[Rfam]
Nucleotides: 084
Base pairs, nucleotide, nucleotide: 006079007078008077009076010075011074012073013072020030021029022028023027032064033063034062035060036059039058040057041056045052046051
Number, partner (000 for none) and nucleotide at each position: 001000a002000a003000a004000u005000u006079a007078u008077u009076g010075a011074u012073a013072g014000g015000a016000g017000a018000g019000a020030g021029u022028g023027a024000u025000u026000u027023u028022c029021a030020c031000c032064g033063c034062c035060g036059a037000a038000g039058g040057c041056g042000c043000a044000a045052a046051c047000g048000c049000c050000c051046g052045u053000a054000a055000a056041c057040g058039c059036u060035c061000a062034g063033g064032c065000a066000a067000a068000a069000g070000g071000a072013c073012u074011g075010u076009c077008a078007a079006u080000a081000u082000u083000u084000u